[Rfam]
RNA sequence: AAUAAACCGUUGAAGAGAUUAGUAACAGGAUAAAGGUUUAAGAGAGUCAGUGAAUGGUGCGAACUGAUACUUUUUAUUUUGUGAAUCCGCCUCUGAGGGACUGUGAUGAACAGUACGGAUGAAUACCGUUAAAUAUGUAGAGAGGAUUAGAUUUUUCUAAUCAAUUAGGGUGGCAACACGGAGUCUUUCGUCCCUUUA
Numbered sequence: 001a002a003u004a005a006a007c008c009g010u011u012g013a014a015g016a017g018a019u020u021a022g023u024a025a026c027a028g029g030a031u032a033a034a035g036g037u038u039u040a041a042g043a044g045a046g047u048c049a050g051u052g053a054a055u056g057g058u059g060c061g062a063a064c065u066g067a068u069a070c071u072u073u074u075u076a077u078u079u080u081g082u083g084a085a086u087c088c089g090c091c092u093c094u095g096a097g098g099g100a101c102u103g104u105g106a107u108g109a110a111c112a113g114u115a116c117g118g119a120u121g122a123a124u125a126c127c128g129u130u131a132a133a134u135a136u137g138u139a140g141a142g143a144g145g146a147u148u149a150g151a152u153u154u155u156u157c158u159a160a161u162c163a164a165u166u167a168g169g170g171u172g173g174c175a176a177c178a179c180g181g182a183g184u185c186u187u188u189c190g191u192c193c194c195u196u197u198a
Stems, first nucleotide, its partner, number of pairs: 007098002015093003025082006035071003046068006100114005116128003145162007167195004178191005

The record is a 198-nucleotide RNA sequence from Clostridium liquoris, which matches "T-box leader" in Rfam. Uncharged tRNA acts as the effector for transcription antitermination of genes in the T-box leader family. T-boxes are found upstream of many aminoacyl-tRNA synthetase genes and some amino acid biosynthetic genes usually in Gram-positive bacteria. Lineage of the source: Bacteria > Bacillota > Eubacteriales > Clostridiaceae > Clostridium. A search with the family's covariance model found it, with a score of 130 bits. The family's consensus secondary structure is taken from published work. For this family Rfam cites "Interaction between the acceptor end of tRNA and the T box stimulates antitermination in the Bacillus subtilis tyrS gene: a new role for the discriminator base" (Grundy et al., J Bacteriol, 1994). The family's RNA type in Rfam is cis-regulatory leader.